[Rfam]
RNA sequence: CGUUACUUUUAGCUUCUCUACAGUGCUGCUUUGUAGAGUAAUGUUCAAGCAGCAUUGUACAGGGCUAUGACAGUGUAG
Numbered sequence: 001c002g003u004u005a006c007u008u009u010u011a012g013c014u015u016c017u018c019u020a021c022a023g024u025g026c027u028g029c030u031u032u033g034u035a036g037a038g039u040a041a042u043g044u045u046c047a048a049g050c051a052g053c054a055u056u057g058u059a060c061a062g063g064g065c066u067a068u069g070a071c072a073g074u075g076u077a078g
Base pairs, nucleotide, nucleotide: 014064015063016062017061019059020058021057022056023055024054025053026052027051028050030049031048032047033046
The record is a 78-nucleotide sequence from Oncorhynchus mykiss, which matches "mir-103/107 microRNA precursor family" in Rfam. A search with the family's covariance model found it, with a score of 85 bits. The organism belongs to Oncorhynchus, within Eukaryota. Its family is annotated with RISC complex and miRNA-mediated post-transcriptional gene silencing in the Gene Ontology. Pairs were carried over by alignment from the consensus structure, which was predicted with RNAalifold.